[Rfam]
RNA sequence: CCAUGGGGGGGGGAACCUGGGGGCAGCCCCAUGGGAGGGGCUGG
Numbered sequence: 001c002c003a004u005g006g007g008g009g010g011g012g013g014a015a016c017c018u019g020g021g022g023g024c025a026g027c028c029c030c031a032u033g034g035g036a037g038g039g040g041c042u043g044g
Stems, first nucleotide, its partner, number of pairs: 001034008

The family of this 44-nucleotide RNA from Sus scrofa is "Prion pseudoknot". The family's RNA type in Rfam is cis-regulatory element. The organism belongs to Sus, within Eukaryota. This family represents a predicted pseudoknot structure found in prion protein mRNA. It has been suggested that the family has a possible effect in prion protein translation. Rfam links the family to the GO term translation.